[Rfam]
A member of the RNA family "Glycine riboswitch aptamer" from Microbispora oryzae, 90 nucleotides long. It scores 73 bits against the family's covariance model. The pairing is the family consensus, mapped onto this sequence. NCBI's taxonomy places the organism under Bacteria, Bacillati, Streptosporangiales, Streptosporangiaceae, Microbispora.
RNA sequence: CGACCUCGCGCGGGAGAGUCCCCUUCAACGGGGGCGCCGAAGGAGCAACCCUCCCCGGAAUCUCUCAGGCAUCCGUACCGCGCGGGCGAG
Numbered sequence: 001c002g003a004c005c006u007c008g009c010g011c012g013g014g015a016g017a018g019u020c021c022c023c024u025u026c027a028a029c030g031g032g033g034g035c036g037c038c039g040a041a042g043g044a045g046c047a048a049c050c051c052u053c054c055c056c057g058g059a060a061u062c063u064c065u066c067a068g069g070c071a072u073c074c075g076u077a078c079c080g081c082g083c084g085g086g087c088g089a090g
Base pairs, nucleotide, nucleotide: 006085007084008083009082010081011080012079013078020034021033022032023031036070037069038068039066040065043064044063045062049058050057